[Rfam]
RNA: Repression of heat shock gene expression (ROSE) element
RNA sequence: CCGGACGCCGUUCGGGUCCGGUUGGACAUAGAGAGCGUCGGCUCUACUGUACCGGCGCUUCUCAUGCCCAAAUUGCUCAACCGGAGGAUUUGGAAAUGAGAA
Numbered sequence: 001c002c003g004g005a006c007g008c009c010g011u012u013c014g015g016g017u018c019c020g021g022u023u024g025g026a027c028a029u030a031g032a033g034a035g036c037g038u039c040g041g042c043u044c045u046a047c048u049g050u051a052c053c054g055g056c057g058c059u060u061c062u063c064a065u066g067c068c069c070a071a072a073u074u075g076c077u078c079a080a081c082c083g084g085a086g087g088a089u090u091u092g093g094a095a096a097u098g099a100g101a102a
Stems, first nucleotide, its partner, number of pairs: 001021006008015002033060009061100005068093007076086003
Dot-bracket structure: ((((((.((....))))))))...........(((((((((..........)))))))))(((((..(((((((.(((.....))))))))))..)))))..